Flavo-1 RNA: a 69-nucleotide RNA sequence from Flavobacterium aquatile.
The family's RNA type in Rfam is small RNA.

Nucleotides: 069
Stems, first nucleotide, its partner, number of pairs: 009061003013057002022048004028043005
Number, partner (000 for none) and nucleotide at each position: 001000a002000u003000u004000u005000a006000g007000c008000c009061c010060u011059g012000a013057u014056u015000g016000a017000a018000a019000g020000g021000a022048a023047a024046a025045a026000c027000u028043c029042c030041c031040g032039a033000u034000u035000u036000u037000u038000a039032u040031c041030g042029g043028g044000a045025u046024u047023u048022u049000g050000g051000g052000a053000u054000g055000a056014a057013a058000g059011c060010a061009g062000g063000a064000a065000a066000a067000a068000g069000g